[Rfam]
RNA sequence: CCAAGGUGGCGGUGCUGGGGUCAGCCCCAUGGCCAUGGUUGCCGG
Number, nucleotide and partner (000 for none) at each position: 001c032002c031003a030004a000005g028006g027007u000008g000009g000010c000011g000012g000013u000014g000015c000016u000017g000018g000019g000020g000021u000022c000023a000024g000025c000026c000027c006028c005029a000030u003031g002032g001033c000034c000035a000036u000037g000038g000039u000040u000041g000042c000043c000044g000045g000
Prion pseudoknot: a 45-nucleotide sequence from Alca torda. Its family is annotated with translation in the Gene Ontology. The source organism's lineage runs through Eukaryota, Amniota, Sauropsida, Neoaves and Alca. A search with the family's covariance model found it, with a score of 41 bits. Rfam describes the family as follows. This family represents a predicted pseudoknot structure found in prion protein mRNA. It has been suggested that the family has a possible effect in prion protein translation. A reference for the family is Barrette et al. (2001), "Pseudoknots in prion protein mRNAs confirmed by comparative sequence analysis and pattern searching", Nucleic Acids Res. The family's consensus secondary structure is taken from published work.